[Rfam]
RNA sequence: UGCGUAGGGCGUGUUUCAUCACGAUAUUUGGAAAGCUCACGCCCUUUAGGCGGGCGGUGCGCACGUAUUGUGCUGUCAUAACUUCGGUCAUAGAGGCGCGGGUCAUGCGGGCGAUGUAGCCCAUGCCGUAAAGCGCGAUCGUUAUGACGGGUAAGAAGAAGUUAUUGAACGUUAUGUCA
Numbered sequence: 001u002g003c004g005u006a007g008g009g010c011g012u013g014u015u016u017c018a019u020c021a022c023g024a025u026a027u028u029u030g031g032a033a034a035g036c037u038c039a040c041g042c043c044c045u046u047u048a049g050g051c052g053g054g055c056g057g058u059g060c061g062c063a064c065g066u067a068u069u070g071u072g073c074u075g076u077c078a079u080a081a082c083u084u085c086g087g088u089c090a091u092a093g094a095g096g097c098g099c100g101g102g103u104c105a106u107g108c109g110g111g112c113g114a115u116g117u118a119g120c121c122c123a124u125g126c127c128g129u130a131a132a133g134c135g136c137g138a139u140c141g142u143u144a145u146g147a148c149g150g151g152u153a154a155g156a157a158g159a160a161g162u163u164a165u166u167g168a169a170c171g172u173u174a175u176g177u178c179a
Stems, first nucleotide, its partner, number of pairs: 006139001009136004014131002016128001020125002028123001030121002038113001040111001042109001046105001048103001051100002054097001055075007082096004145179003150173003154165001156163002

The record is a 179-nucleotide sequence from Octadecabacter temperatus, which matches "Ruegeria cis52 sRNA" in Rfam. Lineage of the source: Bacteria > Pseudomonadota > Rhodobacterales > Roseobacteraceae > Octadecabacter. Rfam links the family to the GO term regulation of gene expression. The family's RNA type in Rfam is small RNA.